[Rfam]
RNA: Nitrogen stress-induced RNA 1
Organism: Cyanobacteria bacterium FACHB-DQ100
RNA sequence: UGGUAGAUGCACCCUGAUUAUUUCCCUCAUUCAUGCCUAGUGAGUGAGGGUUUUUUAU
Numbered sequence: 001u002g003g004u005a006g007a008u009g010c011a012c013c014c015u016g017a018u019u020a021u022u023u024c025c026c027u028c029a030u031u032c033a034u035g036c037c038u039a040g041u042g043a044g045u046g047a048g049g050g051u052u053u054u055u056u057a058u
Base pairs, nucleotide, nucleotide: 002013003012004011024050025049026048027047028046029045030044031043032042033041034040